Rfam assigns this 111-nucleotide RNA from Pseudomonas sp. v388 to the family "Pseudomon-groES RNA".
The match comes from Rfam's covariance-model search (97 bits).
The base pairs follow the family's consensus structure, which is taken from published work.
By type it is a cis-regulatory element.
NCBI's taxonomy places the organism under Bacteria, Pseudomonadati, Gammaproteobacteria, Pseudomonadales, Pseudomonas.

RNA sequence: GUAUGGGUCACCGCAAGGUUUCUGGCCCAGCGCCAGACCGUUUUCUGCGGUUCGCUCGUCGAACCGUAACCGGCACAGCCGGAUUUUUAACCCGCCGGUGCAGUCACCGGG
Numbered sequence: 001g002u003a004u005g006g007g008u009c010a011c012c013g014c015a016a017g018g019u020u021u022c023u024g025g026c027c028c029a030g031c032g033c034c035a036g037a038c039c040g041u042u043u044u045c046u047g048c049g050g051u052u053c054g055c056u057c058g059u060c061g062a063a064c065c066g067u068a069a070c071c072g073g074c075a076c077a078g079c080c081g082g083a084u085u086u087u088u089a090a091c092c093c094g095c096c097g098g099u100g101c102a103g104u105c106a107c108c109g110g111g
Stems, first nucleotide, its partner, number of pairs: 010019003021037006046068009070082004095110005